[Rfam]
RNA sequence: ACCGGGCUUGGUAACGCUUGCCUAUAACUCAAGUGAGGGUAUUAAAGAUUGUUGGACAGUGACUCAACCCAGUCAGAUUGGUCCCACUGUUGCAUAAUCUGGCUUGCCCGUUCCAAGUUGUGAGUUGGACCAUGUGGCUUGAGCGAAAGCUUGGGCCACAUGGUUCUUAAAGCAGGGGGCACUGCGUAAGGCUGGUUUCACAGAGCUGCGAAAACCCCUCGCUCAUGACAGUGGAAGGAUAACAUGCCGGGGCUCCAUGGGUCCAUAAUAUCUACCGGGUUGUCUCAAAUGAACAACCAUCUUU
Dot-bracket structure: (((((((..(......)..))))....(((....))))))...((((((.((((..((.(((..(((.((.(..((((.((.((((..(..(..(...(((((.((.((.(((((.(((((((((.((((((((((((((((((....))))))))))))))))))(....).(((((....(.(((....(((......)))....))).)..))))).)))))))))..)))))))....)).)))))).)..).)))).)).....))))..).)))))..)))..))..)))).))))))